The family of this 95-nucleotide RNA from Streptomyces xanthophaeus is "ZMP/ZTP riboswitch aptamer (pfl RNA motif)". For this family Rfam cites "Recognition of the bacterial alarmone ZMP through long-distance association of two RNA subdomains" (Jones and Ferre-D'Amare, Nat Struct Mol Biol, 2015). A search with the family's covariance model found it, with a score of 49 bits. The base pairs follow the family's consensus structure, which is taken from published work.
RNA sequence: CCCGCGGGCCGUGACUGGCGUUCGGGUGGAUCACCACCGGGGAGCGGCCCGGCGUACGUGGCGUACGCCGACUGCCGCGCGCCUGGGCGAUCCGC
Numbered sequence: 001c002c003c004g005c006g007g008g009c010c011g012u013g014a015c016u017g018g019c020g021u022u023c024g025g026g027u028g029g030a031u032c033a034c035c036a037c038c039g040g041g042g043a044g045c046g047g048c049c050c051g052g053c054g055u056a057c058g059u060g061g062c063g064u065a066c067g068c069c070g071a072c073u074g075c076c077g078c079g080c081g082c083c084u085g086g087g088c089g090a091u092c093c094g095c
Stems, first nucleotide, its partner, number of pairs: 005051008015041002017083005026037004073089004
Dot-bracket structure: ....((((((((..(([[[[[....((((....))))..))..)))))))).....................((((..]]]]]..))))......
The organism belongs to Streptomyces, within Bacteria.